[Rfam]
RNA sequence: AAUGUGGUUAAUGAUGCUCAAUUUUUUUUCCCCAUCUUAUCGACUCUGGUGAAUCCAGUCUGAAAAAGUAUAAGCCAAUUUGUCUGAAACCACAUU
Numbered sequence: 001a002a003u004g005u006g007g008u009u010a011a012u013g014a015u016g017c018u019c020a021a022u023u024u025u026u027u028u029u030c031c032c033c034a035u036c037u038u039a040u041c042g043a044c045u046c047u048g049g050u051g052a053a054u055c056c057a058g059u060c061u062g063a064a065a066a067a068g069u070a071u072a073a074g075c076c077a078a079u080u081u082g083u084c085u086g087a088a089a090c091c092a093c094a095u096u
Stems, first nucleotide, its partner, number of pairs: 001096009
RNA: Small nucleolar SNORD12/SNORD106
Organism: Oncorhynchus mykiss